[Rfam]
RNA sequence: AUCAAGGGAGUAGCAGACGGGUCAGCCCGUGAUUAUGUCGUCAUUACGAAAUUAAUUUCCGGCAUAAUCUUAAACCGCGAGACUUGUUUGGAAUAAAACAGGUCUUUUUAU
Numbered sequence: 001a002u003c004a005a006g007g008g009a010g011u012a013g014c015a016g017a018c019g020g021g022u023c024a025g026c027c028c029g030u031g032a033u034u035a036u037g038u039c040g041u042c043a044u045u046a047c048g049a050a051a052u053u054a055a056u057u058u059c060c061g062g063c064a065u066a067a068u069c070u071u072a073a074a075c076c077g078c079g080a081g082a083c084u085u086g087u088u089u090g091g092a093a094u095a096a097a098a099c100a101g102g103u104c105u106u107u108u109u110a111u
Base pairs, nucleotide, nucleotide: 005030007028008027011024013022014021031069032068033067034066035065036064037063038062039061040060043058048053079106080105081104082103083102084101085100086099087098088097089096
Dot-bracket structure: ....(.((..(.((......)).)..)).)((((((((((..(....(....)....).)))))))))).........(((((((((((......))))))))))).....
The family of this 111-nucleotide sequence from Streptococcus hillyeri is "Streptococcus sRNA 10".
A reference for the family is Tesorero et al. (2013), "Novel regulatory small RNAs in Streptococcus pyogenes", PLoS One.
Rfam classes the family as a small RNA.